[Rfam]
RNA sequence: AGUUUGAAGUUCGCAGCCUGAUUUUUUAAGGCUGGCGGCUGGCGAUUAUUUAAUCGCCAGCCU
Numbered sequence: 001a002g003u004u005u006g007a008a009g010u011u012c013g014c015a016g017c018c019u020g021a022u023u024u025u026u027u028a029a030g031g032c033u034g035g036c037g038g039c040u041g042g043c044g045a046u047u048a049u050u051u052a053a054u055c056g057c058c059a060g061c062c063u
Base pairs, nucleotide, nucleotide: 014034015033016032017031018030037062038061039060040059041058042057043056044055045054046053
The family of this 63-nucleotide RNA sequence from Xenorhabdus szentirmaii is "Pseudomonas sRNA P26".
A reference for the family is Livny et al. (2006), "Identification of 17 Pseudomonas aeruginosa sRNAs and prediction of sRNA-encoding genes in 10 diverse pathogens using the bioinformatic tool sRNAPredict2", Nucleic Acids Res.
From the family's description: This small RNA (sRNA) was computationally identified in the genome of the opportunistic pathogen Pseudomonas aeruginosa and its expression verified by northern blot analysis. P26 is conserved across many Gammaproteobacteria species and appears to be consistently located between the DNA directed RNA polymerase (beta subunit) and 50S ribosomal protein L7/L12 genes.